[Rfam]
RNA sequence: GUUCCUCUGGGAUGAACCGGUCCCUAAUACUUUAAUCACCAUCUCGUCACUUUGUCAGCUAUUAAAAUUUUAUUCUUAGCUGAUCAUUAAGGAUGGGACAUUU
Numbered sequence: 001g002u003u004c005c006u007c008u009g010g011g012a013u014g015a016a017c018c019g020g021u022c023c024c025u026a027a028u029a030c031u032u033u034a035a036u037c038a039c040c041a042u043c044u045c046g047u048c049a050c051u052u053u054g055u056c057a058g059c060u061a062u063u064a065a066a067a068u069u070u071u072a073u074u075c076u077u078a079g080c081u082g083a084u085c086a087u088u089a090a091g092g093a094u095g096g097g098a099c100a101u102u103u
Stems, first nucleotide, its partner, number of pairs: 039096005054084008
Dot-bracket structure: ......................................(((((..........((((((((...............)))))))).......))))).......

Background: Shown here is a 103-nucleotide sequence from Ananas comosus, a member of the family "Small nucleolar RNA snoR99". Rfam links the family to the GO terms RNA processing and nucleolus. The match comes from Rfam's covariance-model search (76 bits).